Shown here is a 78-nucleotide RNA sequence from Hermetia illucens, a member of the family "drz-agam-1 ribozyme". Its family is annotated with catalytic activity in the Gene Ontology. A search with the family's covariance model found it, with a score of 41 bits. The source organism's lineage runs through Eukaryota, Opisthokonta, Altocrustacea, Eumetabola and Hermetia.
[Rfam]
RNA sequence: UACUACCAAACCCUAUCUCCACCUCCACGUGGUGAUCGCCGAGAGUUCUUUCUUUAUGAAGAACUCCAGAGAAGAAGG
Numbered sequence: 001u002a003c004u005a006c007c008a009a010a011c012c013c014u015a016u017c018u019c020c021a022c023c024u025c026c027a028c029g030u031g032g033u034g035a036u037c038g039c040c041g042a043g044a045g046u047u048c049u050u051u052c053u054u055u056a057u058g059a060a061g062a063a064c065u066c067c068a069g070a071g072a073a074g075a076a077g078g
Stems, first nucleotide, its partner, number of pairs: 013078002016075003020071001021033003043066008052058001